[Rfam]
RNA sequence: ACGUAUCACUGGGGGUGUCCGUCGACGUCGUCGUCGGGCUGAGAUCAUACCCUUAAAACCGGAUCGAGAUAAUGCUCGCGUCGGGAAGUGGCCUGUAACUUUA
Numbered sequence: 001a002c003g004u005a006u007c008a009c010u011g012g013g014g015g016u017g018u019c020c021g022u023c024g025a026c027g028u029c030g031u032c033g034u035c036g037g038g039c040u041g042a043g044a045u046c047a048u049a050c051c052c053u054u055a056a057a058a059c060c061g062g063a064u065c066g067a068g069a070u071a072a073u074g075c076u077c078g079c080g081u082c083g084g085g086a087a088g089u090g091g092c093c094u095g096u097a098a099c100u101u102u103a
Stems, first nucleotide, its partner, number of pairs: 006091005011053004016047001017039005059084004065078004